[Rfam]
Record summary
Rfam assigns this 80-nucleotide RNA from Pneumocystis wakefieldiae to the family "tRNA". The source organism's lineage runs through Eukaryota, Fungi, Ascomycota, Taphrinomycotina and Pneumocystis. A search with the family's covariance model found it, with a score of 53 bits. For this family Rfam cites "The tertiary structure of tRNA and the development of the genetic code" (Hou, Trends Biochem Sci, 1993).

RNA sequence: GGCUUCAUGGUGUAGUGGUAGCACAUGGGAUUUUGAUACAAAGUAUUCCCACAACCCGAGUUCGAUCCUCGGUGAGGCCU
Numbered sequence: 001g002g003c004u005u006c007a008u009g010g011u012g013u014a015g016u017g018g019u020a021g022c023a024c025a026u027g028g029g030a031u032u033u034u035g036a037u038a039c040a041a042a043g044u045a046u047u048c049c050c051a052c053a054a055c056c057c058g059a060g061u062u063c064g065a066u067c068c069u070c071g072g073u074g075a076g077g078c079c080u
Base pairs, nucleotide, nucleotide: 001079002078003077004076005075006074007073010024011023012022013021026051027050028049029048030047056072057071058070059069060068